[Rfam]
RNA sequence: AGGCCAAUAGCUCAAUUGGUAGAGCAGCGGUCUCCAAAACCGCAGGUUGGGGGUUCGAGUCCCUCUUGGCCUG
Numbered sequence: 001a002g003g004c005c006a007a008u009a010g011c012u013c014a015a016u017u018g019g020u021a022g023a024g025c026a027g028c029g030g031u032c033u034c035c036a037a038a039a040c041c042g043c044a045g046g047u048u049g050g051g052g053g054u055u056c057g058a059g060u061c062c063c064u065c066u067u068g069g070c071c072u073g
Base pairs, nucleotide, nucleotide: 001072002071003070004069005068006067007066010025011024012023013022027043028042029041030040031039049065050064051063052062053061

A member of the RNA family "tRNA" from Magnetovirga frankeli, 73 nucleotides long. Gene Ontology term of the family: triplet codon-amino acid adaptor activity. The base pairs follow the family's consensus structure, which is taken from published work. By type it is a transfer RNA. It scores 72 bits against the family's covariance model.